[Rfam]
Nucleotides: 107
Stems, first nucleotide, its partner, number of pairs: 001107001003105002006101001057074002
Number, partner (000 for none) and nucleotide at each position: 001107a002000u003105a004104c005000c006101a007000u008000g009000g010000u011000g012000g013000g014000g015000a016000c017000a018000c019000u020000u021000c022000a023000c024000u025000a026000g027000c028000a029000u030000c031000c032000c033000u034000u035000u036000g037000a038000a039000u040000c041000u042000u043000u044000c045000c046000c047000a048000a049000g050000u051000u052000u053000c054000c055000u056000g057074c058073a059000a060000g061000g062000u063000c064000u065000c066000a067000g068000u069000g070000g071000g072000u073058u074057g075000c076000u077000g078000c079000u080000u081000g082000a083000a084000c085000u086000g087000c088000a089000a090000u091000a092000u093000c094000u095000c096000a097000u098000c099000a100000a101006u102000c103000u104004g105003u106000c107001u